The record is a 165-nucleotide RNA sequence from Asticcacaulis excentricus, which matches "6S / SsrS RNA" in Rfam. Rfam's curators write: E. coli 6S RNA was the first non coding RNA to be sequenced, but its function was unknown until recently. The match comes from Rfam's covariance-model search (53 bits). The organism belongs to Asticcacaulis excentricus, within Bacteria. By type it is a non-coding RNA gene.
[Rfam]
RNA sequence: GUCGUGCUGCGGCUCACGUCAGCGAACACCUAAUCCUUCUGACCUUAAUCUCUUAGAACGGGGGCUGUCCCUGACUGGGACCGUGGUCCCUAUCAUAUGGCUCCCACCUGAUACGUCAGGUCUGAGUGGAUUUAAACGCUUCGCAACGGUUCUCGUGGCGCCGCC
Numbered sequence: 001g002u003c004g005u006g007c008u009g010c011g012g013c014u015c016a017c018g019u020c021a022g023c024g025a026a027c028a029c030c031u032a033a034u035c036c037u038u039c040u041g042a043c044c045u046u047a048a049u050c051u052c053u054u055a056g057a058a059c060g061g062g063g064g065c066u067g068u069c070c071c072u073g074a075c076u077g078g079g080a081c082c083g084u085g086g087u088c089c090c091u092a093u094c095a096u097a098u099g100g101c102u103c104c105c106a107c108c109u110g111a112u113a114c115g116u117c118a119g120g121u122c123u124g125a126g127u128g129g130a131u132u133u134a135a136a137c138g139c140u141u142c143g144c145a146a147c148g149g150u151u152c153u154c155g156u157g158g159c160g161c162c163g164c165c
Stems, first nucleotide, its partner, number of pairs: 002163001004161008012152001015149001017148003034130003037126001039124001041122004060105003064101005073094002077090005